[Rfam]
RNA: Mammalian CPEB3 ribozyme
Organism: Alligator sinensis
RNA sequence: UGAGAGUUUGAGGUCAUAGAAGAAGUGGUCACAGCAUGGCCAUGUCAGAUUCCAGUGCAUUGGCAAAUUCUGCU
Numbered sequence: 001u002g003a004g005a006g007u008u009u010g011a012g013g014u015c016a017u018a019g020a021a022g023a024a025g026u027g028g029u030c031a032c033a034g035c036a037u038g039g040c041c042a043u044g045u046c047a048g049a050u051u052c053c054a055g056u057g058c059a060u061u062g063g064c065a066a067a068u069u070c071u072g073c074u
Stems, first nucleotide, its partner, number of pairs: 012041004018074002021071004025037003046063001048061003052057001